Notes:
Shown here is a 75-nucleotide RNA sequence from Streptomyces sp. Rer75, a member of the family "ASpks TB sRNA". Taxonomically the source falls in Streptomyces (Bacteria, Bacillati, Kitasatosporales, Streptomycetaceae).
RNA sequence: CUUCAUGGAUCCCAGCCACAGGGGCCGGUUCGUGGGCCGCUGCUGUCCGUACGUGGCGAGCAGGGCCUGCGCUUC
Number, nucleotide and partner (000 for none) at each position: 001c000002u000003u000004c000005a000006u000007g000008g000009a000010u000011c000012c000013c000014a000015g025016c024017c023018a000019c000020a000021g000022g000023g017024g016025c015026c000027g000028g000029u000030u000031c071032g070033u069034g000035g000036g000037c000038c065039g000040c000041u000042g000043c060044u059045g000046u000047c056048c055049g054050u000051a000052c000053g000054u049055g048056g047057c000058g000059a044060g043061c000062a000063g000064g000065g038066c000067c000068u000069g033070c032071g031072c000073u000074u000075c000